[Rfam]
This 120-nucleotide RNA sequence from Shigella flexneri belongs to the Rfam family "RnaG sRNA". The sequence is in the family's curated seed alignment. Small regulatory RNA encoded by the virulence plasmid of S. flexneri, a Gram-negative pathogenic bacterium that causes human bacillary dysentery. It is 450 nt long and it contains a region with specific secondary structure that interacts with icsA mRNA and forms a transcription terminator. Acting as antisense, RnaG is transcribed from the complementary strand of its target, icsA mRNA.
RNA sequence: GUGGUUGAUAAACCCCUGAAAAGAUUCCGUUUUAUCCGGAAUAAAGGGACGAUAUAUGCAAAAACAUAUUAAACAAAGCCUCAACCAAAACAUGAGAGCUGUGUUAUAUAUCAAUGCAAC
Numbered sequence: 001g002u003g004g005u006u007g008a009u010a011a012a013c014c015c016c017u018g019a020a021a022a023g024a025u026u027c028c029g030u031u032u033u034a035u036c037c038g039g040a041a042u043a044a045a046g047g048g049a050c051g052a053u054a055u056a057u058g059c060a061a062a063a064a065c066a067u068a069u070u071a072a073a074c075a076a077a078g079c080c081u082c083a084a085c086c087a088a089a090a091c092a093u094g095a096g097a098g099c100u101g102u103g104u105u106a107u108a109u110a111u112c113a114a115u116g117c118a119a120c
Stems, first nucleotide, its partner, number of pairs: 004115006014048004024042006054069005077100003080096004